The record is a 127-nucleotide sequence from Muraenolepis orangiensis, which matches "Small nucleolar RNA SNORA65" in Rfam. Pairs were carried over by alignment from the consensus structure, which was predicted with RNAalifold. Clan: SNORA65 clan. Rfam describes the family as follows. U65 belongs to the H/ACA class of snoRNAs which are thought to guide the sites of modification of uridines to pseudouridines. Rfam classes the family as an H/ACA-box small nucleolar RNA. For this family Rfam cites "RNomics: an experimental approach that identifies 201 candidates for novel, small, non-messenger RNAs in mouse" (Huttenhofer et al., EMBO J, 2001).
RNA sequence: CCCGCCACUAUGCCUGUCUGUUUAGUGACUGAGUAUAAUCCAGUGGAGGCUGAGAUAGACCCAGCUCUAGGAAGCAGGGCUGCCUAGCAUAGUGGGCACCCCUGUGCCGAAAGAAACUGGAACAUGU
Numbered sequence: 001c002c003c004g005c006c007a008c009u010a011u012g013c014c015u016g017u018c019u020g021u022u023u024a025g026u027g028a029c030u031g032a033g034u035a036u037a038a039u040c041c042a043g044u045g046g047a048g049g050c051u052g053a054g055a056u057a058g059a060c061c062c063a064g065c066u067c068u069a070g071g072a073a074g075c076a077g078g079g080c081u082g083c084c085u086a087g088c089a090u091a092g093u094g095g096g097c098a099c100c101c102c103u104g105u106g107c108c109g110a111a112a113g114a115a116a117c118u119g120g121a122a123c124a125u126g127u
Base pairs, nucleotide, nucleotide: 005046006045007044008043009042018033019032020030021028022027061120062119063118064117066114067113068112070108071107075104076103077102078101079100083096084095085094